[Rfam]
RNA sequence: UAAUAAGCAAAAUUCACUUUUCAGAUUCAUUGAAUAACUGAUGUAUCUGAUCUAUAUUAUAGACCAAAUACAUCAGUUAUUUAAUGAAUCUGAAAACUUGAGUUUUGCUUAUAA
Numbered sequence: 001u002a003a004u005a006a007g008c009a010a011a012a013u014u015c016a017c018u019u020u021u022c023a024g025a026u027u028c029a030u031u032g033a034a035u036a037a038c039u040g041a042u043g044u045a046u047c048u049g050a051u052c053u054a055u056a057u058u059a060u061a062g063a064c065c066a067a068a069u070a071c072a073u074c075a076g077u078u079a080u081u082u083a084a085u086g087a088a089u090c091u092g093a094a095a096a097c098u099u100g101a102g103u104u105u106u107g108c109u110u111a112u113a114a
Stems, first nucleotide, its partner, number of pairs: 003112005009106005015100002018096007026088018048066002051063001

MIR2593 microRNA precursor family: a 114-nucleotide RNA from Trifolium medium. Pairs were carried over by alignment from the consensus structure, which was predicted with RNAalifold. The organism belongs to Trifolium, within Eukaryota.